RNA sequence: CUGCACGGUGCACCCCGGGCUUCUCUGAGACAUUCCGUGAAGGUGGAAGCCCCAAUGCUCGUGCUAGAUUUAACUGCCGUUCAGUGUUGCAGUUCUGUCGAUUUUUCUACGUCUGAUCUGUGUCAAUGUAACGGCUAAAUCU
Numbered sequence: 001c002u003g004c005a006c007g008g009u010g011c012a013c014c015c016c017g018g019g020c021u022u023c024u025c026u027g028a029g030a031c032a033u034u035c036c037g038u039g040a041a042g043g044u045g046g047a048a049g050c051c052c053c054a055a056u057g058c059u060c061g062u063g064c065u066a067g068a069u070u071u072a073a074c075u076g077c078c079g080u081u082c083a084g085u086g087u088u089g090c091a092g093u094u095c096u097g098u099c100g101a102u103u104u105u106u107c108u109a110c111g112u113c114u115g116a117u118c119u120g121u122g123u124c125a126a127u128g129u130a131a132c133g134g135c136u137a138a139a140u141c142u
Stems, first nucleotide, its partner, number of pairs: 003064006010058002017052005022046002024043003076135006085125002088122005097113001099111001